[Rfam]
RNA sequence: GGCGUAAAGCGUGCGUAGGCGGUUUGUUAAGUCUGAAGUGAAAGGCCAUGGCUCAACCAUGGGAAUGCUUUGGAAACUGGCAGACUUGAGUACUGGAGAGGCAAGGGGAAUUCCACGUGUAGCGGUGAAAUGCGUAGAGAUGUGGAGGAAUACCAGUGGCGAAGGCGCCUUGCUGGACAGUGACUGACGCUGAGGCACGAAAGCGUGGGGAGCAAACAGGAUUAGAUACCCUGGUAGUCCACGCCGUAAACGAUGAGUGCUAGGUGUUGGAGGUUCAGACCUUCAGUGCCGAAGGAAACCCAAUAAGCACUCCGCCUGGGGAGUACGGUCGCAAGACUGAAACUCAAAGGAAU
Numbered sequence: 001g002g003c004g005u006a007a008a009g010c011g012u013g014c015g016u017a018g019g020c021g022g023u024u025u026g027u028u029a030a031g032u033c034u035g036a037a038g039u040g041a042a043a044g045g046c047c048a049u050g051g052c053u054c055a056a057c058c059a060u061g062g063g064a065a066u067g068c069u070u071u072g073g074a075a076a077c078u079g080g081c082a083g084a085c086u087u088g089a090g091u092a093c094u095g096g097a098g099a100g101g102c103a104a105g106g107g108g109a110a111u112u113c114c115a116c117g118u119g120u121a122g123c124g125g126u127g128a129a130a131u132g133c134g135u136a137g138a139g140a141u142g143u144g145g146a147g148g149a150a151u152a153c154c155a156g157u158g159g160c161g162a163a164g165g166c167g168c169c170u171u172g173c174u175g176g177a178c179a180g181u182g183a184c185u186g187a188c189g190c191u192g193a194g195g196c197a198c199g200a201a202a203g204c205g206u207g208g209g210g211a212g213c214a215a216a217c218a219g220g221a222u223u224a225g226a227u228a229c230c231c232u233g234g235u236a237g238u239c240c241a242c243g244c245c246g247u248a249a250a251c252g253a254u255g256a257g258u259g260c261u262a263g264g265u266g267u268u269g270g271a272g273g274u275u276c277a278g279a280c281c282u283u284c285a286g287u288g289c290c291g292a293a294g295g296a297a298a299c300c301c302a303a304u305a306a307g308c309a310c311u312c313c314g315c316c317u318g319g320g321g322a323g324u325a326c327g328g329u330c331g332c333a334a335g336a337c338u339g340a341a342a343c344u345c346a347a348a349g350g351a352a353u
Stems, first nucleotide, its partner, number of pairs: 001316003009313001011198004016192001018191003022085007030078002032074009046062006089185003092181004100174007107151001111147008122133003159166002203244006212238002217233004255312006263290012294301002318345003327338004
A member of the RNA family "Bacterial small subunit ribosomal RNA" from Paenalicyclobacillus ferrooxydans, 353 nucleotides of a longer RNA. Its family is annotated with structural constituent of ribosome and ribosome in the Gene Ontology. It scores 1571 bits against the family's covariance model.